U11 spliceosomal RNA: a 155-nucleotide RNA sequence from Rotaria sp. Silwood2. Clan: U1 clan.
[Rfam]
RNA sequence: AAAAAGGGCGUCUGUUGUUUUCUUUCUUGGCUUAAAAUAACACACAGUUGUUUUCGAUUAUUCUAUUGAAGACACUGUGCGGAAUGGCUAUCGAGACAUUUCGGACGCAUAAUCUUUGGAAUUCGGAGCAGUUGGUUUAAUCAACCGGCGCUCCA
Numbered sequence: 001a002a003a004a005a006g007g008g009c010g011u012c013u014g015u016u017g018u019u020u021u022c023u024u025u026c027u028u029g030g031c032u033u034a035a036a037a038u039a040a041c042a043c044a045c046a047g048u049u050g051u052u053u054u055c056g057a058u059u060a061u062u063c064u065a066u067u068g069a070a071g072a073c074a075c076u077g078u079g080c081g082g083a084a085u086g087g088c089u090a091u092c093g094a095g096a097c098a099u100u101u102c103g104g105a106c107g108c109a110u111a112a113u114c115u116u117u118g119g120a121a122u123u124c125g126g127a128g129c130a131g132u133u134g135g136u137u138u139a140a141u142c143a144a145c146c147g148g149c150g151c152u153c154c155a
Base pairs, nucleotide, nucleotide: 008108009107010106011105012104013042014041015040016039017038018037019036020035021034043079044078045077046076047075049074050073051072052071053070054069055068056067057066058065080103081102082101083100084099085098086097126153127152128151129150131149132148133147134146135145137144138143
Background:
A search with the family's covariance model found it, with a score of 94 bits. The source organism's lineage runs through Eukaryota, Metazoa, Gnathifera, Bdelloidea and Rotaria. It is annotated as a spliceosomal small nuclear RNA. Gene Ontology terms of the family: mRNA 5'-splice site recognition, U11 snRNP and pre-mRNA 5'-splice site binding.